[Rfam]
RNA: mir-454 microRNA precursor family
RNA sequence: CUGACGUGUCCUCAGUGAUGAAACCCUAUCAAUGUUGCCUCUGCUUCAGCCCGACUUCACACAGUAGUGCAAUAUUGCUUAUAGGGUCUCUGCUCUGAGGGAUG
Numbered sequence: 001c002u003g004a005c006g007u008g009u010c011c012u013c014a015g016u017g018a019u020g021a022a023a024c025c026c027u028a029u030c031a032a033u034g035u036u037g038c039c040u041c042u043g044c045u046u047c048a049g050c051c052c053g054a055c056u057u058c059a060c061a062c063a064g065u066a067g068u069g070c071a072a073u074a075u076u077g078c079u080u081a082u083a084g085g086g087u088c089u090c091u092g093c094u095c096u097g098a099g100g101g102a103u104g
Stems, first nucleotide, its partner, number of pairs: 020090002023087007030077009041067005